[Rfam]
Source information:
Rfam assigns this 361-nucleotide sequence from Sediminihaliea albiluteola to the family "Bacterial RNase P class A". By type it is a ribozyme. NCBI's taxonomy places the organism under Bacteria, Pseudomonadota, Cellvibrionales, Halieaceae, Sediminihaliea. Its family is annotated with ribonuclease P activity, dimeric ribonuclease P complex and tRNA processing in the Gene Ontology. The family's consensus secondary structure is taken from published work. Rfam describes the family as follows. Ribonuclease P (RNase P) is a ubiquitous endoribonuclease, found in archaea, bacteria and eukarya as well as chloroplasts and mitochondria.
RNA sequence: CGAGUCGGUCAGGCGAUCGCUCUGUUGCCACCUCGCGUGUCGGCAGGGAGGAAAGUCCGGGCUCCAUAGGGCAGAGUGCCAGGUAACUCCUGGGGGGCGUGAGCCUACGGAAAGUGCAGCAGAAAGGAUACCGCCCGCUCACUUCGGUGUACGGGUAAGGGUGAAAAGGUGCGGUAAGAGCGCACCGCGCGGCUGGUAACAGGCGUGGCGAUGGUAAACCCCACUCGGAGCAAGACCAAAUAGGAAUCCGUAUGCCGUGGCCCACGGUGGAUUCGGGUAGGUCGCUACAGGCAGGCGGCGACGCCUGUCGCAGAUGAAUGAUCGUCCACGACAGAACCCGGCUUAUCGACCGACUCGUUUU
Dot-bracket structure: ((((((((((((((((((.((((((((.............))))))))....[[[.[[[[[((((...[[[[.((((((((((.....)))))(((((....)))).)((...((((.............(((((((..((......))..)))))..)).......((((((.......))))))(((((.(((....))).)))).)....))..)))))))))))))...((((......((((((....(((((.]]]]))))))))))).....))))......((((((((....))))))))..........)))))))..........]]]]]]]].).))))))))))....